[Rfam]
RNA sequence: GUGCGAUGAUGUAUUUUAUUCAACACAUCAUUCUGAAAGAACAUAUGUGGAAAAAUAAUGACUGAGCACA
Numbered sequence: 001g002u003g004c005g006a007u008g009a010u011g012u013a014u015u016u017u018a019u020u021c022a023a024c025a026c027a028u029c030a031u032u033c034u035g036a037a038a039g040a041a042c043a044u045a046u047g048u049g050g051a052a053a054a055a056u057a058a059u060g061a062c063u064g065a066g067c068a069c070a
Base pairs, nucleotide, nucleotide: 001069002068003067004066
RNA: Small nucleolar RNA SNORD63
Organism: Macaca mulatta